[Rfam]
Rfam assigns this 128-nucleotide RNA sequence from Granulicatella elegans to the family "L17 ribosomal protein downstream element".
It is annotated as a cis-regulatory element.
RNA sequence: UGAGCGUCAUGAUGGUAAUAAUCAUCUUGCGGUUGUGAGAUGAGAAGUCUGAGGCUACUGUAAAGUAGCCUUAUUCUUUCUCAUGAUUAUUUAGUCUAGCUCGCUGUCUCCCCGCCAGCGUUGGCGGG
Numbered sequence: 001u002g003a004g005c006g007u008c009a010u011g012a013u014g015g016u017a018a019u020a021a022u023c024a025u026c027u028u029g030c031g032g033u034u035g036u037g038a039g040a041u042g043a044g045a046a047g048u049c050u051g052a053g054g055c056u057a058c059u060g061u062a063a064a065g066u067a068g069c070c071u072u073a074u075u076c077u078u079u080c081u082c083a084u085g086a087u088u089a090u091u092u093a094g095u096c097u098a099g100c101u102c103g104c105u106g107u108c109u110c111c112c113c114g115c116c117a118g119c120g121u122u123g124g125c126g127g128g
Stems, first nucleotide, its partner, number of pairs: 002102004011096003017091009111128007